[Rfam]
RNA sequence: GAUGCGAUGAUGAGCUUAAACACCAAUGGUGUUGAUAGGGCAGAGGACUGAGAUACACAAUCUCGCCAUGAGCCUAUUUAGAAUAAACUGAGCAUA
Dot-bracket structure: .((((......................................................................................)))).
Numbered sequence: 001g002a003u004g005c006g007a008u009g010a011u012g013a014g015c016u017u018a019a020a021c022a023c024c025a026a027u028g029g030u031g032u033u034g035a036u037a038g039g040g041c042a043g044a045g046g047a048c049u050g051a052g053a054u055a056c057a058c059a060a061u062c063u064c065g066c067c068a069u070g071a072g073c074c075u076a077u078u079u080a081g082a083a084u085a086a087a088c089u090g091a092g093c094a095u096a
Stems, first nucleotide, its partner, number of pairs: 002095004